Rfam assigns this 569-nucleotide part of an RNA from Bodo saltans to the family "Eukaryotic large subunit ribosomal RNA". Pairs were carried over by alignment from the consensus structure, which is taken from published work. NCBI's taxonomy places the organism under Eukaryota, Kinetoplastea, Eubodonida, Bodonidae, Bodo.
[Rfam]
RNA sequence: GAAGACCCUGUUGAGUUUGACUCCAGUCUGGCUCUGUGCGGCGACAUCUGAGGUGUAGUAUAGGUGGUAGCGCAAGCACAAAUGAAAUACCACCACUCGGAUCGUUGCUUCACUUAUCGAAUGAAGAGACCAAUGGUUUUCGUGAAGUCUGCGGGCUUCGCACCGUCAAGGUUCGGGAUUACAGGCGGGAGACCGCUUCCACGGGAGGCGUAGUGCGCUUGCGUGCGAAACCGUUGUCGUCUUUCGGGGCGGCCUCGUGGGGACCCAACCGUGGUGAAAACUGCACAAAUUGGAUUGUUUCGGCAGUUCAAGAGUCUUGUUUCGAGACAUCUGCCAGAUGGGGAGUUUGGCUGGGGCGGCAUAUCUGUUACACGACAACGCAGGUGUCCUAAGGCGAGCUCAGUGGGAACAGAAAUCUCACGUAGAACACAAGCGUAAAAGCUUGCUUGAUUAACGAUUUCCAGUACGAAUCGAGACUGCGAAAGCAAGGCCAGCGAUCCUUUGCGAAGAAUAGGAAAUAUGAACAAAUCAUACCAGAGGUGUCAGAAUAAUUACCACAGGGAUAACUG
Dot-bracket structure: ......((((.((((((..((((...((((((...(((.(((((((((((((..........(((((..((....))............))))).))))))).)))))).)))...(((((.....((((.......................................................................................................................................................................................))))...))))).......))))))....))))..((((.....))).)((((((...........))))))..((....((((((((.((((((.......))))))...))((......))....))))))....((..((((((.......)))))).)).(((....))).)).........(((((..............((((.......)))).)))))..........))))..))))))........